[Rfam]
RNA: Alphaproteobacterial sRNA BjrC1505
RNA sequence: UUAGUCGUUUACUAGUUAUUAAUCUUUCCAAAUUAUAAACAGAGUCAUCCAGUCAUCUGGAUUUGGAGUGGCUCCUGUCCACUCUGUUUGACGCCUCCCUGUUAAAGACUUCGAGCCGCGGUAACGCGGCUCUUUUUUU
Numbered sequence: 001u002u003a004g005u006c007g008u009u010u011a012c013u014a015g016u017u018a019u020u021a022a023u024c025u026u027u028c029c030a031a032a033u034u035a036u037a038a039a040c041a042g043a044g045u046c047a048u049c050c051a052g053u054c055a056u057c058u059g060g061a062u063u064u065g066g067a068g069u070g071g072c073u074c075c076u077g078u079c080c081a082c083u084c085u086g087u088u089u090g091a092c093g094c095c096u097c098c099c100u101g102u103u104a105a106a107g108a109c110u111u112c113g114a115g116c117c118g119c120g121g122u123a124a125c126g127c128g129g130c131u132c133u134u135u136u137u138u139u
Stems, first nucleotide, its partner, number of pairs: 001043002004040001005014001020035004025030001047062004066084006090103004113132008